[Rfam]
RNA sequence: UCAGCAGGUAGGAUAACCCUUACUUGUUCCUCCUUUUGGAGGGCAGAUUAGAAUAUGAUGAUCAGAGUUUGCAUGGUUUGUGAUUAACAGCUCUGCAUAACCAGGACUUGCAAUGCCCUGAUUGCUCCUAUCUGAU
Dot-bracket structure: .......................(((.((((((....)))))))))............................((.((((....).))).))....(((.((((...........)))).)))............
RNA: U8 small nucleolar RNA